[Rfam]
RNA sequence: CGUCGUAGCCCUUCUUGGGCGUUUCCUCCCUGUAAACUGGCCCGGGCUUGUCCCGGGCUUUUUUUGUCUGUUU
Numbered sequence: 001c002g003u004c005g006u007a008g009c010c011c012u013u014c015u016u017g018g019g020c021g022u023u024u025c026c027u028c029c030c031u032g033u034a035a036a037c038u039g040g041c042c043c044g045g046g047c048u049u050g051u052c053c054c055g056g057g058c059u060u061u062u063u064u065u066g067u068c069u070g071u072u073u
Stems, first nucleotide, its partner, number of pairs: 008020004040058007
RNA: Makes More Granules Regulator RNA (mmgR)